[Rfam]
RNA sequence: UAAUCCUGGCACUGUUGUUACUCUUUUGCGGUGAAUCCCCCUGAGCGGAGGGGCGUUACAGUUUCAAUGCAAAGUGUCGUAUGCGUAUUGCGCGCGAGCCAGGUGGCUGUACUGGCUCACCGGGAGGCACCCGGCACCGCAAAUCCUCUUCAGCAACGUUAAUUGCGAAAAAUAUUGCGAUAAAAAAAGGAGCCGGUUGGGCUCCCUUUUUUACUAAC
Numbered sequence: 001u002a003a004u005c006c007u008g009g010c011a012c013u014g015u016u017g018u019u020a021c022u023c024u025u026u027u028g029c030g031g032u033g034a035a036u037c038c039c040c041c042u043g044a045g046c047g048g049a050g051g052g053g054c055g056u057u058a059c060a061g062u063u064u065c066a067a068u069g070c071a072a073a074g075u076g077u078c079g080u081a082u083g084c085g086u087a088u089u090g091c092g093c094g095c096g097a098g099c100c101a102g103g104u105g106g107c108u109g110u111a112c113u114g115g116c117u118c119a120c121c122g123g124g125a126g127g128c129a130c131c132c133g134g135c136a137c138c139g140c141a142a143a144u145c146c147u148c149u150u151c152a153g154c155a156a157c158g159u160u161a162a163u164u165g166c167g168a169a170a171a172a173u174a175u176u177g178c179g180a181u182a183a184a185a186a187a188a189g190g191a192g193c194c195g196g197u198u199g200g201g202c203u204c205c206c207u208u209u210u211u212u213a214c215u216a217a218c
Stems, first nucleotide, its partner, number of pairs: 014151001017149001026142008038053005061084002089094001096118007120134005158218004167209003
Background
The family of this 218-nucleotide sequence from Mangrovibacter sp. MFB070 is "Gammaproteobacterial sRNA STnc100". The match comes from Rfam's covariance-model search (79 bits). Rfam classes the family as a small RNA.